[Rfam]
This 139-nucleotide sequence from Myotis lucifugus belongs to the Rfam family "Small nucleolar RNA SNORA1". From the family's description: ACA1 is a member of the H/ACA class of snoRNA that guide the sites of modification of uridines to pseudouridines. Rfam links the family to the GO terms RNA processing and nucleolus. Lineage of the source: Eukaryota > Eumetazoa > Chordata > Mammalia > Myotis. It scores 141 bits against the family's covariance model.

Nucleotides: 139
Base pairs, nucleotide, nucleotide: 002066003065004064006062007061008060021048022047023046024045025044026043027042078132079131080130081129082128092118093117094116095115096114097113
Number, partner (000 for none) and nucleotide at each position: 001000a002066g003065c004064c005000u006062c007061a008060u009000u010000c011000u012000a013000u014000g015000u016000g017000a018000a019000a020000a021048u022047g023046g024045g025044u026043a027042c028000u029000g030000u031000u032000u033000u034000u035000g036000u037000g038000u039000a040000c041000g042027g043026u044025g045024u046023c047022c048021a049000g050000a051000a052000a053000u054000u055000u056000g057000u058000u059000a060008a061007u062006g063000u064004g065003g066002c067000u068000a069000c070000a071000u072000u073000g074000a075000g076000a077000c078132a079131c080130a081129g082128g083000u084000u085000a086000u087000g088000c089000u090000u091000c092118c093117a094116u095115c096114a097113c098000a099000g100000u101000a102000a103000u104000c105000u106000u107000a108000u109000u110000a111000c112000a113097g114096u115095g116094g117093u118092g119000a120000c121000a122000a123000u124000g125000a126000g127000a128082c129081c130080u131079g132078u133000a134000a135000c136000a137000u138000u139000u